[Rfam]
The record is an 89-nucleotide sequence from Bowmanella pacifica, which matches "c-di-GMP-I riboswitch aptamer" in Rfam.
Lineage of the source: Bacteria > Pseudomonadota > Gammaproteobacteria > Alteromonadaceae > Bowmanella.
The base pairs follow the family's consensus structure, which is taken from published work.
Rfam's curators write: GEMM was predicted in a large-scale screen for bacterial structured RNA regulatory elements.
RNA sequence: ACAAUUAAAAGGCAAACUGAUUGAAAGGUCAGGACGCAAAGCUUCCGGUCUAACACUGCAACGGCAGUCAUGAUAGCGGGGCUACAUUA
Numbered sequence: 001a002c003a004a005u006u007a008a009a010a011g012g013c014a015a016a017c018u019g020a021u022u023g024a025a026a027g028g029u030c031a032g033g034a035c036g037c038a039a040a041g042c043u044u045c046c047g048g049u050c051u052a053a054c055a056c057u058g059c060a061a062c063g064g065c066a067g068u069c070a071u072g073a074u075a076g077c078g079g080g081g082c083u084a085c086a087u088u089a
Stems, first nucleotide, its partner, number of pairs: 012037002017032006040083004045079003048074003055068004